[Rfam]
RNA: FMN riboswitch aptamer (RFN element)
RNA sequence: AUUCGUCUUCGGGGCAGGGUGAAAUUCCCGACCGGCGGUAAUGAAGCUUUUUUAUCAUGCUUAUUAGCCCGCGAGCCUAGAAAUUUUGGGCAGGAUUUGGUGAGAUUCCAAAGCCGACAGUACAGUCUGGAUGGGAGAAGAUGGAG
Numbered sequence: 001a002u003u004c005g006u007c008u009u010c011g012g013g014g015c016a017g018g019g020u021g022a023a024a025u026u027c028c029c030g031a032c033c034g035g036c037g038g039u040a041a042u043g044a045a046g047c048u049u050u051u052u053u054a055u056c057a058u059g060c061u062u063a064u065u066a067g068c069c070c071g072c073g074a075g076c077c078u079a080g081a082a083a084u085u086u087u088g089g090g091c092a093g094g095a096u097u098u099g100g101u102g103a104g105a106u107u108c109c110a111a112a113g114c115c116g117a118c119a120g121u122a123c124a125g126u127c128u129g130g131a132u133g134g135g136a137g138a139a140g141a142u143g144g145a146g
Stems, first nucleotide, its partner, number of pairs: 003144008017029003031126002033116002035072004067114002077090001096112005118129003